[Rfam]
RNA sequence: AAGUACAUGAUGAAUUAACUCGGAUUCCCCUUCAAGACGUCACGAGUGAUGCAUAAAUCGAGUUUCUGAUGCU
Numbered sequence: 001a002a003g004u005a006c007a008u009g010a011u012g013a014a015u016u017a018a019c020u021c022g023g024a025u026u027c028c029c030c031u032u033c034a035a036g037a038c039g040u041c042a043c044g045a046g047u048g049a050u051g052c053a054u055a056a057a058u059c060g061a062g063u064u065u066c067u068g069a070u071g072c073u
Base pairs, nucleotide, nucleotide: 002073003072004071005070
RNA: Small nucleolar RNA snoR60
Organism: Mikania micrantha